[Rfam]
RNA: msiK RNA
RNA sequence: AACUGUCCACUUCCACUACGGAUCGUUCGGCACGUACCUGCCGAUGGAGGAGAAACAU
Numbered sequence: 001a002a003c004u005g006u007c008c009a010c011u012u013c014c015a016c017u018a019c020g021g022a023u024c025g026u027u028c029g030g031c032a033c034g035u036a037c038c039u040g041c042c043g044a045u046g047g048a049g050g051a052g053a054a055a056c057a058u
Stems, first nucleotide, its partner, number of pairs: 010050006027044006